[Rfam]
RNA sequence: UACAUUUAUGAUGUGAGAAUAUGUAUAAAUUCACAGAACGGGUGAAUGUUUCUACCGGCUGCCAUACGAGCUGACUAUGUAUUUUCCCAGAGAGGUG
Numbered sequence: 001u002a003c004a005u006u007u008a009u010g011a012u013g014u015g016a017g018a019a020u021a022u023g024u025a026u027a028a029a030u031u032c033a034c035a036g037a038a039c040g041g042g043u044g045a046a047u048g049u050u051u052c053u054a055c056c057g058g059c060u061g062c063c064a065u066a067c068g069a070g071c072u073g074a075c076u077a078u079g080u081a082u083u084u085u086c087c088c089a090g091a092g093a094g095g096u097g
Base pairs, nucleotide, nucleotide: 018083019082020081021080022079023078024077025076029047030046031045032044033043034042056073057072058071059070060069061067
This 97-nucleotide RNA from Lachnoclostridium sp. An14 belongs to the Rfam family "Purine riboswitch aptamer". The family's consensus secondary structure is taken from published work. Rfam describes the family as follows. Riboswitches are metabolite binding domains within certain messenger RNAs that serve as precision sensors for their corresponding targets. Lineage of the source: Bacteria > Bacillati > Clostridia > Lachnospiraceae > Lachnoclostridium. For this family Rfam cites "Riboswitches Control Fundamental Biochemical Pathways in Bacillus subtilis and Other Bacteria" (Mandal et al., Cell, 2003).